[Rfam]
About this RNA: A member of the RNA family "Small nucleolar RNA U6-53/MBII-28" from Xenopus laevis, 91 nucleotides long. Rfam 15.1 lists 780 matches to the family in 403 species.

RNA sequence: GUUUACUGAUGAAUAUCCAUGCUAAUACUGAGACAUCAGGAGAAAGACUUCUCCUGGAUGUAAAUGACUAGCUGUACUAAAACUGAAAGCA
Numbered sequence: 001g002u003u004u005a006c007u008g009a010u011g012a013a014u015a016u017c018c019a020u021g022c023u024a025a026u027a028c029u030g031a032g033a034c035a036u037c038a039g040g041a042g043a044a045a046g047a048c049u050u051c052u053c054c055u056g057g058a059u060g061u062a063a064a065u066g067a068c069u070a071g072c073u074g075u076a077c078u079a080a081a082a083c084u085g086a087a088a089g090c091a
Stems, first nucleotide, its partner, number of pairs: 001090004041052004
Gene Ontology terms of the family: RNA processing and nucleolus.